Source information: The record is a 73-nucleotide sequence from Chlorogloeopsis fritschii, which matches "tRNA" in Rfam. The base pairs follow the family's consensus structure, which is taken from published work. It is annotated as a transfer RNA. The source organism's lineage runs through Bacteria, Cyanophyceae, Chlorogloeopsidaceae, Chlorogloeopsis and Chlorogloeopsis fritschii. It scores 45 bits against the family's covariance model. Its Rfam clan is "tRNA clan".
[Rfam]
RNA sequence: UGCGGAAUAGAGCAGUUGGGUAGCUCGUUGGGUGUAUACCCAAAGGUCAGUGGUUCAAAUCCAUUUUCUGCCA
Number, nucleotide and partner (000 for none) at each position: 001u000002g071003c070004g069005g068006a067007a066008u000009a000010g026011a025012g024013c023014a000015g000016u000017u000018g000019g000020g000021u000022a000023g013024c012025u011026c010027g000028u043029u042030g041031g040032g039033u000034g000035u000036a000037u000038a000039c032040c031041c030042a029043a028044a000045g000046g000047u000048c000049a065050g064051u063052g062053g061054u000055u000056c000057a000058a000059a000060u000061c053062c052063a051064u050065u049066u007067u006068c005069u004070g003071c002072c000073a000